[Rfam]
Bacterial large subunit ribosomal RNA: a 600-nucleotide part of an RNA from Leptospirillum sp. Group II '5-way CG'.
The sequence is in the family's curated seed alignment.
Gene Ontology terms of the family: ribosome and structural constituent of ribosome.
NCBI's taxonomy places the organism under Bacteria, Pseudomonadati, Nitrospirales, Nitrospiraceae, Leptospirillum sp. Group II.
RNA sequence: GACAAAGGGCAGACGGGGGAUGCCUUGGCAGCAGUAGGCGAAGAAGGACGCGGCGAGCUGCGAAAAGCUCCGGGGAGUCGCUCACAGGCGUUGAUCCGGAGGAAUCCGAAUGGGGGAACCCCGCUGGGGUCAUGCCCAGCGAGCCACAUCUGAAUCCAUAGGGUGUGGCGGCGAACCCGGGGAAGUGAAACAUCUCAGUACCCGGAGGAAGAGAAAUCAAGCGAGAUUCCCCAAGUAGUGGCGAGCGAACGGGGAAGAGCCCAAACCUCCACCACGUGACAGGUCGAAGCCGUUGUGGCGGGGGGGUAGACGGAGGCAAGGCGGUGUCGCUUCGACGGCACCCGGUCGCGAAAGGCGUUAGGCGAACGGUCUGGAAAGGCCGACCAGAGAGGGUGACAGUCCCGUAGUCGAAAACGCAGCGGAGGACCGACUUGUGAUCCGGAGUACCACCGGGCCCGAGAAACCCGGUGGGAAGCAGGGAAGACCACUUUCCAAGGCUAAAUACUCACUGCUGACCGAUAGUGAACCAGUACCGUGAGGGAAAGGCGAAAAGAACCCCGGGCAGGGGAGUGAAAUAGAACCUGAAACCGUCUGCCUACA
Numbered sequence: 001g002a003c004a005a006a007g008g009g010c011a012g013a014c015g016g017g018g019g020a021u022g023c024c025u026u027g028g029c030a031g032c033a034g035u036a037g038g039c040g041a042a043g044a045a046g047g048a049c050g051c052g053g054c055g056a057g058c059u060g061c062g063a064a065a066a067g068c069u070c071c072g073g074g075g076a077g078u079c080g081c082u083c084a085c086a087g088g089c090g091u092u093g094a095u096c097c098g099g100a101g102g103a104a105u106c107c108g109a110a111u112g113g114g115g116g117a118a119c120c121c122c123g124c125u126g127g128g129g130u131c132a133u134g135c136c137c138a139g140c141g142a143g144c145c146a147c148a149u150c151u152g153a154a155u156c157c158a159u160a161g162g163g164u165g166u167g168g169c170g171g172c173g174a175a176c177c178c179g180g181g182g183a184a185g186u187g188a189a190a191c192a193u194c195u196c197a198g199u200a201c202c203c204g205g206a207g208g209a210a211g212a213g214a215a216a217u218c219a220a221g222c223g224a225g226a227u228u229c230c231c232c233a234a235g236u237a238g239u240g241g242c243g244a245g246c247g248a249a250c251g252g253g254g255a256a257g258a259g260c261c262c263a264a265a266c267c268u269c270c271a272c273c274a275c276g277u278g279a280c281a282g283g284u285c286g287a288a289g290c291c292g293u294u295g296u297g298g299c300g301g302g303g304g305g306g307u308a309g310a311c312g313g314a315g316g317c318a319a320g321g322c323g324g325u326g327u328c329g330c331u332u333c334g335a336c337g338g339c340a341c342c343c344g345g346u347c348g349c350g351a352a353a354g355g356c357g358u359u360a361g362g363c364g365a366a367c368g369g370u371c372u373g374g375a376a377a378g379g380c381c382g383a384c385c386a387g388a389g390a391g392g393g394u395g396a397c398a399g400u401c402c403c404g405u406a407g408u409c410g411a412a413a414a415c416g417c418a419g420c421g422g423a424g425g426a427c428c429g430a431c432u433u434g435u436g437a438u439c440c441g442g443a444g445u446a447c448c449a450c451c452g453g454g455c456c457c458g459a460g461a462a463a464c465c466c467g468g469u470g471g472g473a474a475g476c477a478g479g480g481a482a483g484a485c486c487a488c489u490u491u492c493c494a495a496g497g498c499u500a501a502a503u504a505c506u507c508a509c510u511g512c513u514g515a516c517c518g519a520u521a522g523u524g525a526a527c528c529a530g531u532a533c534c535g536u537g538a539g540g541g542a543a544a545g546g547c548g549a550a551a552a553g554a555a556c557c558c559c560g561g562g563c564a565g566g567g568g569a570g571u572g573a574a575a576u577a578g579a580a581c582c583u584g585a586a587a588c589c590g591u592c593u594g595c596c597u598a599c600a
Stems, first nucleotide, its partner, number of pairs: 007597010022582001023546002027517002029514007036506002038172002046107003049062003068101007077089003112121003122141007143169009176207001177205005187194002217224002227502001228255005238246002258499004266304005272298005311441003316435005355417005361409003367382005385389001391403003447471008478493005533540002556568004